Background
Shown here is a 237-nucleotide RNA sequence from Bombyx mori, a member of the family "RNase MRP". Its family is annotated with ribonuclease MRP complex, rRNA processing and ribonuclease MRP activity in the Gene Ontology. A search with the family's covariance model found it, with a score of 88 bits. The base pairs follow the family's consensus structure, which is taken from published work. By type it is a ribozyme. RNase MRP is an enzymatically active ribonucleoprotein with two distinct roles in eukaryotes. NCBI's taxonomy places the organism under Eukaryota, Opisthokonta, Eumetabola, Neolepidoptera, Bombyx.
RNA sequence: GGGUUCCAACCAGUUCAACUUUCGGGGUCACAUGCGAGUUCUUGUAACUCAUACUCACCCUGUGGAAAGUCCCCGGAGACGAGGCGGAAAGCGCCACAUCGUUAUGAUGGUAGCAGCGAUGGUGACGCAGGGGAGGACAAUUCCCGUACGUUGUCAUCGCCUAGCAUUGCUCAGAGCAAAGUCAAUGUUGAAGGGCUUCGGCUCAAACGAAAUGGGGCUUACUCGGUUUCGGAAACC
Numbered sequence: 001g002g003g004u005u006c007c008a009a010c011c012a013g014u015u016c017a018a019c020u021u022u023c024g025g026g027g028u029c030a031c032a033u034g035c036g037a038g039u040u041c042u043u044g045u046a047a048c049u050c051a052u053a054c055u056c057a058c059c060c061u062g063u064g065g066a067a068a069g070u071c072c073c074c075g076g077a078g079a080c081g082a083g084g085c086g087g088a089a090a091g092c093g094c095c096a097c098a099u100c101g102u103u104a105u106g107a108u109g110g111u112a113g114c115a116g117c118g119a120u121g122g123u124g125a126c127g128c129a130g131g132g133g134a135g136g137a138c139a140a141u142u143c144c145c146g147u148a149c150g151u152u153g154u155c156a157u158c159g160c161c162u163a164g165c166a167u168u169g170c171u172c173a174g175a176g177c178a179a180a181g182u183c184a185a186u187g188u189u190g191a192a193g194g195g196c197u198u199c200g201g202c203u204c205a206a207a208c209g210a211a212a213u214g215g216g217g218c219u220u221a222c223u224c225g226g227u228u229u230c231g232g233a234a235a236c237c
Stems, first nucleotide, its partner, number of pairs: 002237002004234004008228004014192006023062006036050005067220003071217004083095004097109004112162002118158006127151002131145004193204004
Dot-bracket structure: .((((((((((..((((((...((((((.......(((((.....)))))......))))))....[[[.[[[[........((((.....)))).((((.....))))..((....((((((...((..((((.......))))....)).))))))..))........................))))))((((....)))).........]]]]]]]....))))..)))).))